RNA sequence: AAGCUGGUGGAAGUCUAGCCAGAGCAAUUUCCAUUUUGGCUCUGUAGUUAUAUCCAACAUCAAUGAAGGGUAACCUUUCUUGGUGAAAGCUUGGAAGUAAAAAUCCCAUUUAGUGGGGUGAGCAAGUAUGAGGGCCGCAGCGAAA
Numbered sequence: 001a002a003g004c005u006g007g008u009g010g011a012a013g014u015c016u017a018g019c020c021a022g023a024g025c026a027a028u029u030u031c032c033a034u035u036u037u038g039g040c041u042c043u044g045u046a047g048u049u050a051u052a053u054c055c056a057a058c059a060u061c062a063a064u065g066a067a068g069g070g071u072a073a074c075c076u077u078u079c080u081u082g083g084u085g086a087a088a089g090c091u092u093g094g095a096a097g098u099a100a101a102a103a104u105c106c107c108a109u110u111u112a113g114u115g116g117g118g119u120g121a122g123c124a125a126g127u128a129u130g131a132g133g134g135c136c137g138c139a140g141c142g143a144a145a
Stems, first nucleotide, its partner, number of pairs: 020044005053095005058085006067076001069074001103119006122138002
Background: This 145-nucleotide sequence from Candidatus Scalindua rubra belongs to the Rfam family "Group II catalytic intron D1-D4-4". The pairing is the family consensus, mapped onto this sequence. The organism belongs to Candidatus Scalindua, within Bacteria. For this family Rfam cites "The ins and outs of group II introns" (Bonen and Vogel, Trends Genet, 2001). Rfam describes the family as follows. Group II introns are found in rRNA, tRNA and mRNA of organelles in fungi, plants and protists, and also in mRNA in bacteria.